[Rfam]
RNA: Metazoan signal recognition particle RNA
Organism: Scyliorhinus torazame
RNA sequence: GCCGGGCGCGGUGGCGCGCGCCUGUAAUCCGGCGACUCGGAGGCUGAGGCUAUCGGAUUGCUUGAGAUCAGGAGUUCUGGGCUGCUGCGGACUAUGCCGAUCAGGUGUCCUCGCUAAGCUGGGCAUCGAUAUGGUGUCCCCGGAGGAAUCCGGGAUCACCAGGUCGUGUAAAGAGGGGUGAAUCGGCCCAGGUCGGAAACGGAGCAGGUCAAAGCCCCCGUGCCUAUCAGUAGUCGGAUCGCGCCUGUGAAUAGACGUUGCAGUGCAGCCUGGUUGACACAGUGAAACAUAGUCUUUU
Numbered sequence: 001g002c003c004g005g006g007c008g009c010g011g012u013g014g015c016g017c018g019c020g021c022c023u024g025u026a027a028u029c030c031g032g033c034g035a036c037u038c039g040g041a042g043g044c045u046g047a048g049g050c051u052a053u054c055g056g057a058u059u060g061c062u063u064g065a066g067a068u069c070a071g072g073a074g075u076u077c078u079g080g081g082c083u084g085c086u087g088c089g090g091a092c093u094a095u096g097c098c099g100a101u102c103a104g105g106u107g108u109c110c111u112c113g114c115u116a117a118g119c120u121g122g123g124c125a126u127c128g129a130u131a132u133g134g135u136g137u138c139c140c141c142g143g144a145g146g147a148a149u150c151c152g153g154g155a156u157c158a159c160c161a162g163g164u165c166g167u168g169u170a171a172a173g174a175g176g177g178g179u180g181a182a183u184c185g186g187c188c189c190a191g192g193u194c195g196g197a198a199a200c201g202g203a204g205c206a207g208g209u210c211a212a213a214g215c216c217c218c219c220g221u222g223c224c225u226a227u228c229a230g231u232a233g234u235c236g237g238a239u240c241g242c243g244c245c246u247g248u249g250a251a252u253a254g255a256c257g258u259u260g261c262a263g264u265g266c267a268g269c270c271u272g273g274u275u276g277a278c279a280c281a282g283u284g285a286a287a288c289a290u291a292g293u294c295u296u297u298u
Stems, first nucleotide, its partner, number of pairs: 001044003004023007028041003046296008058285005066275007077268003081264005087258003092254004097249001102247007109237002113234004118228001120226007127166004132161005139154006167173001175218005185210004193202003